[Rfam]
Background: This 161-nucleotide sequence from Prunus persica belongs to the Rfam family "U1 spliceosomal RNA". It is annotated as a spliceosomal small nuclear RNA. For this family Rfam cites "The uRNA database" (Zwieb, Nucleic Acids Res, 1997). Gene Ontology terms of the family: U1 snRNP, mRNA 5'-splice site recognition and pre-mRNA 5'-splice site binding. Lineage of the source: Eukaryota > Streptophyta > Streptophytina > Rosaceae > Prunus. It scores 153 bits against the family's covariance model.

Nucleotides: 161
Stems, first nucleotide, its partner, number of pairs: 012119004016048005023042005049089003055083003059079003062075002091114003094110003098106002135160005142153004
Number, partner (000 for none) and nucleotide at each position: 001000a002000u003000a004000c005000u006000u007000a008000c009000c010000u011000g012119g013118a014117c015116g016048g017047g018046g019045u020044u021000u022000u023042u024041g025040g026039g027038u028000g029000a030000u031000c032000a033000a034000g035000a036000a037000g038027g039026c040025c041024c042023a043000u044020g045019g046018c047017c048016u049089a050088g051087g052000u053000u054000a055083g056082u057081g058000a059079c060078c061077u062075c063074c064000a065000u066000u067000g068000c069000a070000c071000u072000u073000c074063g075062g076000a077061g078060g079059g080000g081057u082056g083055c084000u085000a086000c087051c088050c089049u090000a091114u092113g093112g094110u095109c096108u097000c098106c099105c100000c101000a102000a103000g104000u105099g106098g107000g108096a109095g110094a111000g112093c113092c114091a115000a116015c117014g118013u119012c120000a121000u122000a123000a124000u125000u126000u127000g128000u129000g130000u131000u132000a133000g134000u135160g136159g137158g138157g139156g140000c141000c142153u143152g144151c145150g146000u147000u148000c149000g150145c151144g152143c153142g154000g155000c156139c157138c158137c159136u160135u161000u